The record is a 55-nucleotide RNA, which matches "Glutamine riboswitch aptamer (glnA leader)" in Rfam. The family's consensus secondary structure is taken from published work. For this family Rfam cites "Bacterial aptamers that selectively bind glutamine" (Ames and Breaker, RNA Biol, 2011). Rfam links the family to the GO term glutamine binding. The sequence is in the family's curated seed alignment.
RNA sequence: AUCGUUCAAUCCUUUUUAGGGGUCGGAAGUAGGUAUCAUACUGAAGGAACGCGGA
Numbered sequence: 001a002u003c004g005u006u007c008a009a010u011c012c013u014u015u016u017u018a019g020g021g022g023u024c025g026g027a028a029g030u031a032g033g034u035a036u037c038a039u040a041c042u043g044a045a046g047g048a049a050c051g052c053g054g055a
Base pairs, nucleotide, nucleotide: 003051004050005049006048007047009023010022011021012020013019026052032042033041034040